[Rfam]
RNA sequence: GGCCCAAAUCUGAAGUAAGGUAGAUUAGUAAGGUCAGCUGGUCCUACUAUUUUACUGUACUUCGGAAUGGAGCCC
Numbered sequence: 001g002g003c004c005c006a007a008a009u010c011u012g013a014a015g016u017a018a019g020g021u022a023g024a025u026u027a028g029u030a031a032g033g034u035c036a037g038c039u040g041g042u043c044c045u046a047c048u049a050u051u052u053u054a055c056u057g058u059a060c061u062u063c064g065g066a067a068u069g070g071a072g073c074c075c
Base pairs, nucleotide, nucleotide: 001074002073003072005070007068009066011064012063013062014061015060016059017058019056020055021054022053023052026049027048028047029046030045032043033042034041035040
The record is a 75-nucleotide RNA sequence from Haemonchus placei, which matches "mir-5928 microRNA precursor family" in Rfam.
A search with the family's covariance model found it, with a score of 72 bits.